[Rfam]
RNA sequence: AAGAGUUGAAAGACAUGGGUAGUGAGACGUUAAAUUUAAAAAUUCGUAUCACUAUUCUGUUUUUCACCUUUUU
Numbered sequence: 001a002a003g004a005g006u007u008g009a010a011a012g013a014c015a016u017g018g019g020u021a022g023u024g025a026g027a028c029g030u031u032a033a034a035u036u037u038a039a040a041a042a043u044u045c046g047u048a049u050c051a052c053u054a055u056u057c058u059g060u061u062u063u064u065c066a067c068c069u070u071u072u073u
Stems, first nucleotide, its partner, number of pairs: 008065008017057003021053005027047003
The record is a 73-nucleotide RNA from Dracunculus medinensis, which matches "mir-71 microRNA precursor family" in Rfam. Rfam links the family to the GO terms miRNA-mediated post-transcriptional gene silencing and RISC complex. It scores 71 bits against the family's covariance model. A reference for the family is Li et al. (2009), "Direct sequencing and expression analysis of a large number of miRNAs in Aedes aegypti and a multi-species survey of novel mosquito miRNAs", BMC Genomics. Pairs were carried over by alignment from the consensus structure, which was predicted with RNAalifold.